RNA sequence: CGAACUCGGGUCUGUGGUUGAAAAUCGAUGCCAGCUGCGGGCGAAGCGAUCCACGUAAGCCGCUCAAAGAGCGGUGAUCAUGGGGCAGUUUAGAGGUAAGACCGGCCAGGCACUUGCUUUGUAGGAAAGACAAACUUCGGUUGGGCAUCCGUCAAAUGUAAGAUUCCUGAGAGGGGUAGUAGUGGGGAGGCAAAGGCCUUAGGAGCGAACCCUCCAGCCGGCGGAUGUGGGGACAAAGACCAGGUCAGCCGAUGCUG
Numbered sequence: 001c002g003a004a005c006u007c008g009g010g011u012c013u014g015u016g017g018u019u020g021a022a023a024a025u026c027g028a029u030g031c032c033a034g035c036u037g038c039g040g041g042c043g044a045a046g047c048g049a050u051c052c053a054c055g056u057a058a059g060c061c062g063c064u065c066a067a068a069g070a071g072c073g074g075u076g077a078u079c080a081u082g083g084g085g086c087a088g089u090u091u092a093g094a095g096g097u098a099a100g101a102c103c104g105g106c107c108a109g110g111c112a113c114u115u116g117c118u119u120u121g122u123a124g125g126a127a128a129g130a131c132a133a134a135c136u137u138c139g140g141u142u143g144g145g146c147a148u149c150c151g152u153c154a155a156a157u158g159u160a161a162g163a164u165u166c167c168u169g170a171g172a173g174g175g176g177u178a179g180u181a182g183u184g185g186g187g188a189g190g191c192a193a194a195g196g197c198c199u200u201a202g203g204a205g206c207g208a209a210c211c212c213u214c215c216a217g218c219c220g221g222c223g224g225a226u227g228u229g230g231g232g233a234c235a236a237a238g239a240c241c242a243g244g245u246c247a248g249c250c251g252a253u254g255c256u257g
Stems, first nucleotide, its partner, number of pairs: 001257002006252004012248003015242005028228003031041001033090006050083002055078001058075001060073001064069001081235001102221005107169004173214004182206002188199003
The record is a 257-nucleotide RNA sequence, which matches "raiA RNA" in Rfam. By type it is a riboswitch. Rfam's curators put it in the seed alignment.